RNA sequence: AGAGGUUGCAAGUUCCAGGCCAUAGCAGAAGUGCUUAUGGCACAGCCGUGUCAGAUUCCAACAAAUCUGCAAAUUGUGCC
Numbered sequence: 001a002g003a004g005g006u007u008g009c010a011a012g013u014u015c016c017a018g019g020c021c022a023u024a025g026c027a028g029a030a031g032u033g034c035u036u037a038u039g040g041c042a043c044a045g046c047c048g049u050g051u052c053a054g055a056u057u058c059c060a061a062c063a064a065a066u067c068u069g070c071a072a073a074u075u076g077u078g079c080c
Stems, first nucleotide, its partner, number of pairs: 016048001018047003025079003029075002031043003052069006
Rfam assigns this 80-nucleotide RNA sequence from Crocodylus porosus to the family "Mammalian CPEB3 ribozyme".
The base pairs follow the family's consensus structure, which is taken from published work.
The match comes from Rfam's covariance-model search (44 bits).
Taxonomically the source falls in Crocodylus (Eukaryota, Craniata, Vertebrata, Sauropsida).